[Rfam]
RNA sequence: CUUGACCGAGCCGAGCCACAGCGGCUCGCCGUCCCGGUCUCGGCCGUAGGUGGCCAGCAGGGCCUGGGCCUC
Numbered sequence: 001c002u003u004g005a006c007c008g009a010g011c012c013g014a015g016c017c018a019c020a021g022c023g024g025c026u027c028g029c030c031g032u033c034c035c036g037g038u039c040u041c042g043g044c045c046g047u048a049g050g051u052g053g054c055c056a057g058c059a060g061g062g063c064c065u066g067g068g069c070c071u072c
Stems, first nucleotide, its partner, number of pairs: 014026004032067002035062001040057001042055001044053003